[Rfam]
RNA sequence: AUUGGUUAAAAAUCACCUGAGGCUUUGGCUGUGGCUGUAGGUGAGAUUUGGUACCCAGAGCCACUAGGAGCCUCAGCUAACCACCCACUCAUGGGUAUGGAGGGUGAGAUCCAGGCUCUGACCUAC
Numbered sequence: 001a002u003u004g005g006u007u008a009a010a011a012a013u014c015a016c017c018u019g020a021g022g023c024u025u026u027g028g029c030u031g032u033g034g035c036u037g038u039a040g041g042u043g044a045g046a047u048u049u050g051g052u053a054c055c056c057a058g059a060g061c062c063a064c065u066a067g068g069a070g071c072c073u074c075a076g077c078u079a080a081c082c083a084c085c086c087a088c089u090c091a092u093g094g095g096u097a098u099g100g101a102g103g104g105u106g107a108g109a110u111c112c113a114g115g116c117u118c119u120g121a122c123c124u125a126c
Base pairs, nucleotide, nucleotide: 005052006051007050008049009048010047013044014043015042016041021036022035023034024033067119069117070116071115072114073113078107080105081104082103087096088095
RNA: Small nucleolar RNA ACA64